[Rfam]
Source information: Purine riboswitch aptamer: a 97-nucleotide RNA from Paenibacillus lycopersici. On this family, see Mandal and Breaker, Nat Struct Mol Biol 2004: "Adenine riboswitches and gene activation by disruption of a transcription terminator". Rfam links the family to the GO term purine nucleobase biosynthetic process.
RNA sequence: CGCAGCAGCCUCGCCGACAUUCGUAUAGCUCCGCAUCAGGGCGGGGGUUUCUACAGGAAGCCGUAACUUCCUAACUACGAAUAUGGAAUGAUCUUCG
Numbered sequence: 001c002g003c004a005g006c007a008g009c010c011u012c013g014c015c016g017a018c019a020u021u022c023g024u025a026u027a028g029c030u031c032c033g034c035a036u037c038a039g040g041g042c043g044g045g046g047g048u049u050u051c052u053a054c055a056g057g058a059a060g061c062c063g064u065a066a067c068u069u070c071c072u073a074a075c076u077a078c079g080a081a082u083a084u085g086g087a088a089u090g091a092u093c094u095u096c097g
Base pairs, nucleotide, nucleotide: 019082020081021080022079023078024077025076029046030045031044032043033042034041055072056071057070058069059068060067